[Rfam]
A member of the RNA family "mir-2774 microRNA precursor family" from Bombyx mori, 67 nucleotides long. The literature on the family includes a 2010 paper in BMC Genomics by Liu et al., "MicroRNAs of Bombyx mori identified by Solexa sequencing".
RNA sequence: ACAACAUUUGGACCGUCGGUCUACGGAGCAAUAUCACCUGCUCGGUGGAAGAUCUUCCCUCCACCGU
Numbered sequence: 001a002c003a004a005c006a007u008u009u010g011g012a013c014c015g016u017c018g019g020u021c022u023a024c025g026g027a028g029c030a031a032u033a034u035c036a037c038c039u040g041c042u043c044g045g046u047g048g049a050a051g052a053u054c055u056u057c058c059c060u061c062c063a064c065c066g067u
Stems, first nucleotide, its partner, number of pairs: 010058003015053003020049005026043004